A member of the RNA family "mir-21 microRNA precursor family" from Salmo trutta, 73 nucleotides long. NCBI's taxonomy places the organism under Eukaryota, Opisthokonta, Actinopteri, Osteoglossocephalai, Salmo. Its family is annotated with miRNA-mediated post-transcriptional gene silencing and RISC complex in the Gene Ontology. The family has 41 seed sequences and 777 matches in Rfam 15.1. It scores 86 bits against the family's covariance model. The base pairs follow the family's consensus structure, which was predicted with RNAalifold.

[Rfam]
RNA sequence: UGUCAGAUAGCUUAUCAGACUGGUGUUGACUGUUUGAAUCACAUGGCGACAACAGUCUGUAAGCUGUCUGAAG
Numbered sequence: 001u002g003u004c005a006g007a008u009a010g011c012u013u014a015u016c017a018g019a020c021u022g023g024u025g026u027u028g029a030c031u032g033u034u035u036g037a038a039u040c041a042c043a044u045g046g047c048g049a050c051a052a053c054a055g056u057c058u059g060u061a062a063g064c065u066g067u068c069u070g071a072a073g
Stems, first nucleotide, its partner, number of pairs: 008066008018057005024051005030045001